RNA: Small nucleolar RNA SNORA31
RNA sequence: AAGCAUCUGUUUGACAGACCUGGAGCAAACAACUGUUGCUUCUCUGGUUCUUGCUAAGAUGCAACAGUAAGAGGUUCCUUGCGCUUUCUACCUGCCUGACCUCAUGGCAGUCUGGAUUGAAUAAAGGAACACAAAC
Numbered sequence: 001a002a003g004c005a006u007c008u009g010u011u012u013g014a015c016a017g018a019c020c021u022g023g024a025g026c027a028a029a030c031a032a033c034u035g036u037u038g039c040u041u042c043u044c045u046g047g048u049u050c051u052u053g054c055u056a057a058g059a060u061g062c063a064a065c066a067g068u069a070a071g072a073g074g075u076u077c078c079u080u081g082c083g084c085u086u087u088c089u090a091c092c093u094g095c096c097u098g099a100c101c102u103c104a105u106g107g108c109a110g111u112c113u114g115g116a117u118u119g120a121a122u123a124a125a126g127g128a129a130c131a132c133a134a135a136c
Stems, first nucleotide, its partner, number of pairs: 003062006012053002017049004023041006076128005084119001087116004092110005